[Rfam]
RNA: Selenocysteine insertion sequence 3
RNA sequence: GUCUGACACGGACCUACGGUGGCGAGUCUCGCCCCUACGUUCGGUCGCGGCGCCAUGAC
Numbered sequence: 001g002u003c004u005g006a007c008a009c010g011g012a013c014c015u016a017c018g019g020u021g022g023c024g025a026g027u028c029u030c031g032c033c034c035c036u037a038c039g040u041u042c043g044g045u046c047g048c049g050g051c052g053c054c055a056u057g058a059c
Stems, first nucleotide, its partner, number of pairs: 007049001009047003013043001016041001018035002021033005